[Rfam]
RNA: L2-Alphaproteobacteria ribosomal protein leader
RNA sequence: GGGCACCUACGGGGGCCUAUAACUUCAGGGUCUCCUCGCGAGGCCCGCCAAGCAAACGGAAGAAGCAA
Number, nucleotide and partner (000 for none) at each position: 001g018002g017003g016004c015005a000006c014007c013008u012009a000010c000011g000012g008013g007014g006015g004016c003017c002018u001019a000020u000021a000022a000023c000024u000025u000026c000027a000028g046029g045030g044031u043032c042033u041034c040035c000036u000037c000038g000039c000040g034041a033042g032043g031044c030045c029046c028047g000048c000049c000050a000051a000052g000053c000054a000055a000056a000057c000058g000059g000060a000061a000062g000063a000064a000065g000066c000067a000068a000